[Rfam]
RNA sequence: UAGGUAGAAUAAAAAAUCACAUUUCGGUUGGUAGUCCGGAAACAUUGUAAGUAACCUUCCCUCCCUGGGUCGUCCGUUAUUCCAAUCUUUUAA
Numbered sequence: 001u002a003g004g005u006a007g008a009a010u011a012a013a014a015a016a017u018c019a020c021a022u023u024u025c026g027g028u029u030g031g032u033a034g035u036c037c038g039g040a041a042a043c044a045u046u047g048u049a050a051g052u053a054a055c056c057u058u059c060c061c062u063c064c065c066u067g068g069g070u071c072g073u074c075c076g077u078u079a080u081u082c083c084a085a086u087c088u089u090u091u092a093a
Stems, first nucleotide, its partner, number of pairs: 005084001007082005022041006042048002059069003

Shown here is a 93-nucleotide RNA from Vagococcus carniphilus, a member of the family "azaaromatic riboswitch aptamer (yjdF RNA)".